About this RNA: The record is a 99-nucleotide RNA sequence from Pseudomonas sp. FeS53a, which matches "Pseudomon-Rho RNA" in Rfam. NCBI's taxonomy places the organism under Bacteria, Pseudomonadota, Gammaproteobacteria, Pseudomonadaceae, Pseudomonas. The family's consensus secondary structure is taken from published work.
[Rfam]
RNA sequence: UUCGGGCCCGCAGCGUCAUUCCGCUGCCCUCUGCAAGCCGCCGUCGACGCAUUCCAACUCGAAUCACGCGCAGCGAUCUGUCGCCUCCUUCGGCGCGGC
Numbered sequence: 001u002u003c004g005g006g007c008c009c010g011c012a013g014c015g016u017c018a019u020u021c022c023g024c025u026g027c028c029c030u031c032u033g034c035a036a037g038c039c040g041c042c043g044u045c046g047a048c049g050c051a052u053u054c055c056a057a058c059u060c061g062a063a064u065c066a067c068g069c070g071c072a073g074c075g076a077u078c079u080g081u082c083g084c085c086u087c088c089u090u091c092g093g094c095g096c097g098g099c
Stems, first nucleotide, its partner, number of pairs: 010027006037099004042095005073084004